[Rfam]
RNA sequence: GUGUAGCCGAAGUCCAUAUGAGUCUUUGUCUUUGUAUCUUUUAAUAAGGAUACAAUACUUAGGCUUUUAAGAUCUGUUUGCAG
Numbered sequence: 001g002u003g004u005a006g007c008c009g010a011a012g013u014c015c016a017u018a019u020g021a022g023u024c025u026u027u028g029u030c031u032u033u034g035u036a037u038c039u040u041u042u043a044a045u046a047a048g049g050a051u052a053c054a055a056u057a058c059u060u061a062g063g064c065u066u067u068u069a070a071g072a073u074c075u076g077u078u079u080g081c082a083g
Stems, first nucleotide, its partner, number of pairs: 002082005008076002012073003020066006028058002032055009

Shown here is an 83-nucleotide RNA sequence from Arabidopsis thaliana, a member of the family "MIR5643 microRNA precursor family". Its family is annotated with RISC complex and miRNA-mediated post-transcriptional gene silencing in the Gene Ontology.